Shown here is a 99-nucleotide RNA from Dulcicalothrix desertica, a member of the family "TPP riboswitch aptamer (THI element)". It scores 62 bits against the family's covariance model. Vitamin B(1) in its active form thiamin pyrophosphate (TPP) is an essential coenzyme that is synthesised by coupling of pyrimidine and thiazole moieties in bacteria. Pairs were carried over by alignment from the consensus structure, which is taken from published work. The organism belongs to Dulcicalothrix desertica, within Bacteria.

RNA sequence: UUUCCUUGCUAGGGGUGCCUGAGUUAAACCGGGCUGAGAUUACACCCUUAACACCUGAGUCUGGGUAAUACCAGCGGAGGGAAGCUCUUUCAUGAAGGA
Numbered sequence: 001u002u003u004c005c006u007u008g009c010u011a012g013g014g015g016u017g018c019c020u021g022a023g024u025u026a027a028a029c030c031g032g033g034c035u036g037a038g039a040u041u042a043c044a045c046c047c048u049u050a051a052c053a054c055c056u057g058a059g060u061c062u063g064g065g066u067a068a069u070a071c072c073a074g075c076g077g078a079g080g081g082a083a084g085c086u087c088u089u090u091c092a093u094g095a096a097g098g099a
Stems, first nucleotide, its partner, number of pairs: 008085003011048004016042001017034005054080003061074004